Histone 3' UTR stem-loop: a 46-nucleotide RNA from Erpetoichthys calabaricus.
[Rfam]
RNA sequence: CAAAAGGCUCUUUUAAGAGCCAUCACACGAUCCCAUGUAAGACAAA
Numbered sequence: 001c002a003a004a005a006g007g008c009u010c011u012u013u014u015a016a017g018a019g020c021c022a023u024c025a026c027a028c029g030a031u032c033c034c035a036u037g038u039a040a041g042a043c044a045a046a
Stems, first nucleotide, its partner, number of pairs: 006021006

The family's RNA type in Rfam is cis-regulatory element. Rfam's curators write: The mRNAs of metazoan histone genes lack a poly-A tail. 3' end processing occurs at a site between a highly conserved stem-loop (modelled by this family) and a purine rich region around 20 nts downstream (the histone downstream element, or HDE). NCBI's taxonomy places the organism under Eukaryota, Opisthokonta, Craniata, Cladistia, Erpetoichthys. Pairs were carried over by alignment from the consensus structure, which is taken from published work.